[Rfam]
RNA sequence: AAGUAAAUUAAAUAAAGUCGUCGUAUAAUGUCGGGAAUAUGGCCCGAAAGUUUCUACCGAGUUACCGUAAAUGACUUGACUACGCAUAUAUAUAAAAGGGGA
Dot-bracket structure: .................(...((((...(.(((((.......))))).)........(((((((.......)))))))..))))...)..............
Source information: This 102-nucleotide RNA from Rummeliibacillus stabekisii belongs to the Rfam family "Purine riboswitch aptamer". Pairs were carried over by alignment from the consensus structure, which is taken from published work. Riboswitches are metabolite binding domains within certain messenger RNAs that serve as precision sensors for their corresponding targets.